[Rfam]
RNA: Rhizobiales sRNA Atu_C7
RNA sequence: CGUUCCGGAUUGAUGUUCGACCGGCCAGGGAUACGGCGCAUCGUGUGUUCUCCUGGCGUAUCCCUUUGCAGCCGAUGUCCCCUCCCUCAUCAGUCUGCGAUGCGCCCUCCUGGCCCCGCUCGUCGAUUGUGACCAGCGGGGCUUUUU
Numbered sequence: 001c002g003u004u005c006c007g008g009a010u011u012g013a014u015g016u017u018c019g020a021c022c023g024g025c026c027a028g029g030g031a032u033a034c035g036g037c038g039c040a041u042c043g044u045g046u047g048u049u050c051u052c053c054u055g056g057c058g059u060a061u062c063c064c065u066u067u068g069c070a071g072c073c074g075a076u077g078u079c080c081c082c083u084c085c086c087u088c089a090u091c092a093g094u095c096u097g098c099g100a101u102g103c104g105c106c107c108u109c110c111u112g113g114c115c116c117c118g119c120u121c122g123u124c125g126a127u128u129g130u131g132a133c134c135a136g137c138g139g140g141g142c143u144u145u146u147u
Base pairs, nucleotide, nucleotide: 055106056105057104058103059102060101061100062099071094072093074091075090076089077088113142114141115140116139117138118137119136120135123132124131